[Rfam]
RNA sequence: GCGGAGACGCAUGUUUCCGUUCACUCCUCACACCAUGUUCCGCCUGGAGCGAUUCAGGCGGUU
Numbered sequence: 001g002c003g004g005a006g007a008c009g010c011a012u013g014u015u016u017c018c019g020u021u022c023a024c025u026c027c028u029c030a031c032a033c034c035a036u037g038u039u040c041c042g043c044c045u046g047g048a049g050c051g052a053u054u055c056a057g058g059c060g061g062u063u
Stems, first nucleotide, its partner, number of pairs: 001020008041060007
This 63-nucleotide RNA sequence from Gloeobacterales cyanobacterium ES-bin-141 belongs to the Rfam family "Cyanobacterial functional RNA 1".
Rfam classes the family as a small RNA.
The literature on the family includes a 2007 paper in BMC Genomics by Voss et al., "A motif-based search in bacterial genomes identifies the ortholog of the small RNA Yfr1 in all lineages of cyanobacteria".